[Rfam]
The family of this 67-nucleotide sequence from Pediococcus acidilactici is "Fluoride riboswitch aptamer (crcB RNA motif)". It scores 41 bits against the family's covariance model.

RNA sequence: AACUAAAUAGGCGAUGACGUUCGCCGUAAAAAUAAUUAAACAUUAAUUUGAUGACGUCUAUUAUUUC
Numbered sequence: 001a002a003c004u005a006a007a008u009a010g011g012c013g014a015u016g017a018c019g020u021u022c023g024c025c026g027u028a029a030a031a032a033u034a035a036u037u038a039a040a041c042a043u044u045a046a047u048u049u050g051a052u053g054a055c056g057u058c059u060a061u062u063a064u065u066u067c
Stems, first nucleotide, its partner, number of pairs: 010025004016058006034048004
The base pairs follow the family's consensus structure, which is taken from published work. Taxonomically the source falls in Pediococcus acidilactici (Bacteria, Bacillati, Bacillota, Lactobacillaceae).